[Rfam]
RNA: ylbH leader
RNA sequence: GCAAAAAAGCGAGGCCCCCUUGCGGGGGCCUCUUUCAUGGGAGAGGAGAAACCGGACGAAGAGCUUAUGGGGAAACGUAAGCCUUCUCCGCGG
Dot-bracket structure: ..........(((((((((....))))))))).((....))...........((((.((((.(((((..........)))))))))))))...